[Rfam]
RNA sequence: UCCUUAUCGAGAGUCGGGGGAGGAACCUGGUCCGAUGAUCCCGCGGCAACCUCUUAUUUUUCCAAAAAUAAGAACGGUGCCAAUUCCAGCAGACUGUUCCAGUUUGGAAGAUAAGGA
Numbered sequence: 001u002c003c004u005u006a007u008c009g010a011g012a013g014u015c016g017g018g019g020g021a022g023g024a025a026c027c028u029g030g031u032c033c034g035a036u037g038a039u040c041c042c043g044c045g046g047c048a049a050c051c052u053c054u055u056a057u058u059u060u061u062c063c064a065a066a067a068a069u070a071a072g073a074a075c076g077g078u079g080c081c082a083a084u085u086c087c088a089g090c091a092g093a094c095u096g097u098u099c100c101a102g103u104u105u106g107g108a109a110g111a112u113a114a115g116g117a
Stems, first nucleotide, its partner, number of pairs: 001117008013044001015043004022033003027089004045081004050077002052073007085109001090106006
This 117-nucleotide sequence from Melghirimyces profundicolus belongs to the Rfam family "SAM riboswitch aptamer (S box leader)". NCBI's taxonomy places the organism under Bacteria, Bacillota, Bacilli, Thermoactinomycetaceae, Melghirimyces.